[Rfam]
RNA sequence: CCACAUCGACAGGGGAGCGCCCGCGCGGCGCUGAGAGUGCGGUCCGCCGCAGACCCUCGAACCUGCUCCGGUCCGCACCGGCGAAGGAAGUCGAGUCUCCCGGUCG
Dot-bracket structure: .....(((((((((..(((((.....)))))......(((((....)))))..))))....(((...((((......))))...)))..)))))............
The family of this 106-nucleotide RNA from Micrococcus luteus is "TPP riboswitch aptamer (THI element)".
Pairs were carried over by alignment from the consensus structure, which is taken from published work.
The source organism's lineage runs through Bacteria, Actinomycetota, Actinomycetes, Micrococcus and Micrococcus luteus.